Rfam assigns this 61-nucleotide sequence from Mycobacteroides abscessus to the family "Mycobacterium sRNA Ms_IGR-8". It is annotated as a small RNA. The literature on the family includes a 2013 paper in RNA by Li et al., "Identification of small RNAs in Mycobacterium smegmatis using heterologous Hfq". The match comes from Rfam's covariance-model search (48 bits).

RNA sequence: CUGGCCUGAUACCGAGUGUGAAGCUAUUGCGAGAUUUCCCCGGAUUUCCCGCAAUAGCUUC
Number, nucleotide and partner (000 for none) at each position: 001c000002u000003g000004g000005c000006c000007u000008g000009a000010u000011a000012c000013c000014g000015a000016g000017u000018g000019u000020g061021a060022a059023g058024c057025u056026a055027u054028u053029g052030c051031g050032a000033g047034a000035u000036u000037u043038c000039c000040c000041c000042g000043g037044a000045u000046u000047u033048c000049c000050c031051g030052c029053a028054a027055u026056a025057g024058c023059u022060u021061c020

The base pairs follow the family's consensus structure.